[Rfam]
RNA sequence: GUGCAUCUUUGACAGCCUGGGCUCUCUGUUGUGAGAGAUGCUGGGUUUUAUUAUUUCAGAUGCAACAGUAAACGUCCCUGCGCUUUCUGCGUGCCUGUUUUCAAUGGUGCCACAGAUUGAAGAGGGGAAAACAAAC
Numbered sequence: 001g002u003g004c005a006u007c008u009u010u011g012a013c014a015g016c017c018u019g020g021g022c023u024c025u026c027u028g029u030u031g032u033g034a035g036a037g038a039u040g041c042u043g044g045g046u047u048u049u050a051u052u053a054u055u056u057c058a059g060a061u062g063c064a065a066c067a068g069u070a071a072a073c074g075u076c077c078c079u080g081c082g083c084u085u086u087c088u089g090c091g092u093g094c095c096u097g098u099u100u101u102c103a104a105u106g107g108u109g110c111c112a113c114a115g116a117u118u119g120a121a122g123a124g125g126g127g128a129a130a131a132c133a134a135a136c
Stems, first nucleotide, its partner, number of pairs: 002064007010050002014047005022037005075128005083119001086116004091110005
RNA: Small nucleolar RNA SNORA31